[Rfam]
RNA sequence: AGUAUGAUUAGGUCUACGUGAUGACGAGUCAGGUCAGGCUCCGCACUGGGUUUGGUCGCCCAGGGGAUGGAGACACGGAAAGGACAUCGUGUGCUAUAAGUCUGACGUAAGUCGAGCUUGCAACAUGGGUCUAUGCCUGGAUAAGUCACGUGGUUGCCCCUACU
Numbered sequence: 001a002g003u004a005u006g007a008u009u010a011g012g013u014c015u016a017c018g019u020g021a022u023g024a025c026g027a028g029u030c031a032g033g034u035c036a037g038g039c040u041c042c043g044c045a046c047u048g049g050g051u052u053u054g055g056u057c058g059c060c061c062a063g064g065g066g067a068u069g070g071a072g073a074c075a076c077g078g079a080a081a082g083g084a085c086a087u088c089g090u091g092u093g094c095u096a097u098a099a100g101u102c103u104g105a106c107g108u109a110a111g112u113c114g115a116g117c118u119u120g121c122a123a124c125a126u127g128g129g130u131c132u133a134u135g136c137c138u139g140g141a142u143a144a145g146u147c148a149c150g151u152g153g154u155u156g157c158c159c160c161u162a163c164u
Stems, first nucleotide, its partner, number of pairs: 001164004006159001011158002014153009025139002028137001030135001034078002039072005046063006082132004088127005095122001097120001099118002102116002104113003
This 164-nucleotide RNA sequence from Tombusvirus algeriaense belongs to the Rfam family "Tombusvirus 3' cap-independent translation element". Rfam's curators put it in the seed alignment. For this family Rfam cites "Tombusvirus Y-shaped translational enhancer forms a complex with eIF4F and can be functionally replaced by heterologous translational enhancers" (Nicholson et al., J Virol, 2013). Rfam classes the family as a cis-regulatory element.